Record summary
A member of the RNA family "SAM-I/IV (S-adenosyl methionine) riboswitch aptamer" from Pseudoblastomonas halimionae, 117 nucleotides long. It scores 54 bits against the family's covariance model. On this family, see Weinberg et al., RNA 2008: "The aptamer core of SAM-IV riboswitches mimics the ligand-binding site of SAM-I riboswitches". The family has 417 seed sequences and 567 matches in Rfam 15.1. The source organism's lineage runs through Bacteria, Pseudomonadati, Alphaproteobacteria, Sphingomonadales and Pseudoblastomonas.
RNA sequence: CGUCUGCAUCAAGAGUGGCGCGAGUUCGUUCGCGGCCACGCCAACCUGCCCUCCCGGGCAAGGUGGCGGUCCUGUCAACAGGACGAUGCGGCCAGAAGGGCAACCGAGCGGGGUUAU
Dot-bracket structure: .....(((((....(((((...............)))))(((..((((((.[[[[[))).))).))).................))))).(((.....))).......]]]]]....